[Rfam]
RNA sequence: UGUCACCUGUGUGUUUUCUCUGCAUGUCCUCUUCAUUGUUCUACUGAAGACUGGUCCCUACUGUGUGUGAGGGAGGAGGUUGGGAGUUAAGGGAAAACGGGGUAU
Numbered sequence: 001u002g003u004c005a006c007c008u009g010u011g012u013g014u015u016u017u018c019u020c021u022g023c024a025u026g027u028c029c030u031c032u033u034c035a036u037u038g039u040u041c042u043a044c045u046g047a048a049g050a051c052u053g054g055u056c057c058c059u060a061c062u063g064u065g066u067g068u069g070a071g072g073g074a075g076g077a078g079g080u081u082g083g084g085a086g087u088u089a090a091g092g093g094a095a096a097a098c099g100g101g102g103u104a105u
Stems, first nucleotide, its partner, number of pairs: 002105002006102003012099010024087002027084003031079004036074002039071003042067003045063001046061001048059002
RNA: mir-6133 microRNA precursor family